About this RNA: The record is a 125-nucleotide sequence from Myotis davidii, which matches "Small nucleolar RNA SNORA32" in Rfam. Lineage of the source: Eukaryota > Gnathostomata > Theria > Vespertilionidae > Myotis.
RNA sequence: UGGUCAUGACCAAGGCUUUUAGAAUGUAGUUUCUCAUUGGCCGUGGACAUGGCCACAAAACAUUUCCCCAAUAGGUUUUUUUCUUCUAUGUUGGUACCAUAGCAUUCAGCCUACUGGGAACAUUA
Numbered sequence: 001u002g003g004u005c006a007u008g009a010c011c012a013a014g015g016c017u018u019u020u021a022g023a024a025u026g027u028a029g030u031u032u033c034u035c036a037u038u039g040g041c042c043g044u045g046g047a048c049a050u051g052g053c054c055a056c057a058a059a060a061c062a063u064u065u066c067c068c069c070a071a072u073a074g075g076u077u078u079u080u081u082u083c084u085u086c087u088a089u090g091u092u093g094g095u096a097c098c099a100u101a102g103c104a105u106u107c108a109g110c111c112u113a114c115u116g117g118g119a120a121c122a123u124u125a
Stems, first nucleotide, its partner, number of pairs: 003053005010046003026041002029038001067118004074111004089104003
Rfam links the family to the GO terms RNA processing and nucleolus. From the family's description: ACA32 is a member of the H/ACA class of snoRNA that guide the sites of modification of uridines to pseudouridines.